[Rfam]
RNA sequence: UGACCCCGUGCGGGAGAGUCCUCCAGGCGCCAUCGGAGGGCGCCGAAGGAGCAAAUCCUCCCCGGAAUCUCUCAGGCCCACGUACCGCAUGGACGAG
Numbered sequence: 001u002g003a004c005c006c007c008g009u010g011c012g013g014g015a016g017a018g019u020c021c022u023c024c025a026g027g028c029g030c031c032a033u034c035g036g037a038g039g040g041c042g043c044c045g046a047a048g049g050a051g052c053a054a055a056u057c058c059u060c061c062c063c064g065g066a067a068u069c070u071c072u073c074a075g076g077c078c079c080a081c082g083u084a085c086c087g088c089a090u091g092g093a094c095g096a097g
Base pairs, nucleotide, nucleotide: 006092007091008090009089010088011087012086013085020040021039022038042077043076044075045073046072049071050070051069056064